[Rfam]
RNA sequence: AAAUAUUAUAUUUUUGUGAGGCUCCUACAUAGACACACGCUACUGCCCAGAAACAUCGAGAGAUGCCAACGGGUCAGGAGGUAUUAUCGAAAGAAGGUAUUACCUAAUGUAGCUAGAGAAUUAACUCUUAAGCUUUGUAGUGCUAAAACUCAGAAUUAAAGUUAAU
Numbered sequence: 001a002a003a004u005a006u007u008a009u010a011u012u013u014u015u016g017u018g019a020g021g022c023u024c025c026u027a028c029a030u031a032g033a034c035a036c037a038c039g040c041u042a043c044u045g046c047c048c049a050g051a052a053a054c055a056u057c058g059a060g061a062g063a064u065g066c067c068a069a070c071g072g073g074u075c076a077g078g079a080g081g082u083a084u085u086a087u088c089g090a091a092a093g094a095a096g097g098u099a100u101u102a103c104c105u106a107a108u109g110u111a112g113c114u115a116g117a118g119a120a121u122u123a124a125c126u127c128u129u130a131a132g133c134u135u136u137g138u139a140g141u142g143c144u145a146a147a148a149c150u151c152a153g154a155a156u157u158a159a160a161g162u163u164a165a166u
Base pairs, nucleotide, nucleotide: 005162006161007160009158010157011155012154013095016149017148020144021143022142025140026139027138028137029136031134032133039113040112041111042110043109045074046073047072048071054065055064056063057062080104081103082102083101086098087097088096115128116127117126
Shown here is a 166-nucleotide RNA sequence from Clostridium intestinale, a member of the family "M-box riboswitch aptamer (ykoK leader)". The pairing is the family consensus, mapped onto this sequence. About the family: M-box riboswitch, also know as ykoK leader is described as a metaloregulatory RNA that sense divalent metals and function as a genetic control element of genes related to divalent metal transport in bacteria.